The record is a 114-nucleotide RNA from Clytia hemisphaerica, which matches "Potassium channel RNA editing signal" in Rfam.
Taxonomically the source falls in Clytia (Eukaryota, Opisthokonta, Leptothecata, Clytiidae).
Pairs were carried over by alignment from the consensus structure, which is taken from published work.
RNA sequence: GUUGGAUACGGAGACAAAGUUCCCAAAACAUUACCUGGGAAAUUUGUUGGAAGUCUUUGUGCGAUCGUUGGCGUGUUGACAAUUGCAUUGCCAGUACCGGUUAUUGUGUCCAAU
Dot-bracket structure: ((.((.(((((.(((.....(...............((.(.........(...........)...........).))................).....))).))))).)).))
A reference for the family is Bhalla et al. (2004), "Control of human potassium channel inactivation by editing of a small mRNA hairpin", Nat Struct Mol Biol. About the family: This family represents a group of sequences related to the human potassium channel Kv1.1 hairpin element which directs the efficient modification of an adenosine to inosine by an adenosine deaminase acting on RNA (ADAR).